[Rfam]
RNA sequence: UUCUUAUCUAGAGAGGUGGAGGGACUGGCCCUUUGAAGCCUCGGCAACGGAUCUGGUGUAUAUGCAUCAGAAACUGUGCCAACUCCAGCAAGUGAUUCACUUGGAAAGAUAAGAA
Numbered sequence: 001u002u003c004u005u006a007u008c009u010a011g012a013g014a015g016g017u018g019g020a021g022g023g024a025c026u027g028g029c030c031c032u033u034u035g036a037a038g039c040c041u042c043g044g045c046a047a048c049g050g051a052u053c054u055g056g057u058g059u060a061u062a063u064g065c066a067u068c069a070g071a072a073a074c075u076g077u078g079c080c081a082a083c084u085c086c087a088g089c090a091a092g093u094g095a096u097u098c099a100c101u102u103g104g105a106a107a108g109a110u111a112a113g114a115a
Stems, first nucleotide, its partner, number of pairs: 001115008013042005021031003025088004043080004048076002052071006084107001089103006